[Rfam]
RNA sequence: CAAACCUGCCUUUCAGGCAUCCUCUCCCAAAACUUUCCAGGCCCGGUUUUUCUAACCGGGCCUUUUCUUUUGCCUGC
Numbered sequence: 001c002a003a004a005c006c007u008g009c010c011u012u013u014c015a016g017g018c019a020u021c022c023u024c025u026c027c028c029a030a031a032a033c034u035u036u037c038c039a040g041g042c043c044c045g046g047u048u049u050u051u052c053u054a055a056c057c058g059g060g061c062c063u064u065u066u067c068u069u070u071u072g073c074c075u076g077c
Base pairs, nucleotide, nucleotide: 008018009017010016011015040062041061042060043059044058045057046056047055048054
Dot-bracket structure: .......((((...)))).....................(((((((((.....)))))))))...............
This 77-nucleotide sequence from Alteraurantiacibacter aquimixticola belongs to the Rfam family "Makes More Granules Regulator RNA (mmgR)". The family's RNA type in Rfam is small RNA. NCBI's taxonomy places the organism under Bacteria, Pseudomonadati, Pseudomonadota, Erythrobacteraceae, Alteraurantiacibacter. The base pairs follow the family's consensus structure. Its family is annotated with protein binding, DNA-templated transcription, termination and response to nitrogen compound in the Gene Ontology.